This 60-nucleotide RNA sequence from Jaculus jaculus belongs to the Rfam family "Ma3 gene ribosomal frameshift signal". The base pairs follow the family's consensus structure, which is taken from published work. It scores 57 bits against the family's covariance model. For this family Rfam cites "A functional -1 ribosomal frameshift signal in the human paraneoplastic Ma3 gene" (Wills et al., J Biol Chem, 2006).

RNA sequence: GGGAAACGAGAGAGGGGUUGGGACUGUGAGCCGCCUCAAACCCCAGGAAAUAUAGGCUCA
Number, nucleotide and partner (000 for none) at each position: 001g000002g000003g000004a000005a000006a000007c000008g000009a000010g000011a000012g000013a000014g044015g043016g042017g041018u040019u039020g000021g037022g036023a000024c000025u000026g000027u000028g059029a058030g057031c056032c055033g000034c000035c000036u022037c021038a000039a019040a018041c017042c016043c015044c014045a000046g000047g000048a000049a000050a000051u000052a000053u000054a000055g032056g031057c030058u029059c028060a000